[Rfam]
RNA sequence: GAUUGUACAAGUUAAUCAUUCCGUAUAUGCUUGGGAAUUGGCUCAAGUGUUUCUACCGGGCAACCGUAAAUUGCCUGACUACGGGAGGGAAAGUGUACCUA
Numbered sequence: 001g002a003u004u005g006u007a008c009a010a011g012u013u014a015a016u017c018a019u020u021c022c023g024u025a026u027a028u029g030c031u032u033g034g035g036a037a038u039u040g041g042c043u044c045a046a047g048u049g050u051u052u053c054u055a056c057c058g059g060g061c062a063a064c065c066g067u068a069a070a071u072u073g074c075c076u077g078a079c080u081a082c083g084g085g086a087g088g089g090a091a092a093g094u095g096u097a098c099c100u101a
Stems, first nucleotide, its partner, number of pairs: 019086007029048007057077007
A member of the RNA family "Purine riboswitch aptamer" from Desulforamulus hydrothermalis, 101 nucleotides long. Rfam links the family to the GO term purine nucleobase biosynthetic process. Rfam's curators write: Riboswitches are metabolite binding domains within certain messenger RNAs that serve as precision sensors for their corresponding targets. The source organism's lineage runs through Bacteria, Bacillota, Clostridia, Peptococcaceae and Desulforamulus hydrothermalis.